[Rfam]
RNA sequence: AGCCAGCGCAGUGCGGUCUUUCUCCUCCCAGUGCCGCGCGUUGGCUGUUCCCCUCUGGAGGUUCUUUAGCCUUCAACCUAGCAGGGCCCAGGCUUUCGCUUGUGGCCCUCUUUU
Numbered sequence: 001a002g003c004c005a006g007c008g009c010a011g012u013g014c015g016g017u018c019u020u021u022c023u024c025c026u027c028c029c030a031g032u033g034c035c036g037c038g039c040g041u042u043g044g045c046u047g048u049u050c051c052c053c054u055c056u057g058g059a060g061g062u063u064c065u066u067u068a069g070c071c072u073u074c075a076a077c078c079u080a081g082c083a084g085g086g087c088c089c090a091g092g093c094u095u096u097c098g099c100u101u102g103u104g105g106c107c108c109u110c111u112u113u114u
Stems, first nucleotide, its partner, number of pairs: 001046005007040003013037004056075007083109006089102004

Rfam assigns this 114-nucleotide RNA from Shinella fusca to the family "Alphaproteobacterial ar15". Its Rfam clan is "suhB sRNA clan". Taxonomically the source falls in Shinella (Bacteria, Pseudomonadota, Hyphomicrobiales, Rhizobiaceae). For this family Rfam cites "Identification of two small regulatory RNAs linked to virulence in Brucella abortus 2308" (Caswell et al., Mol Microbiol, 2012). The family's RNA type in Rfam is small RNA. Gene Ontology term of the family: protein binding.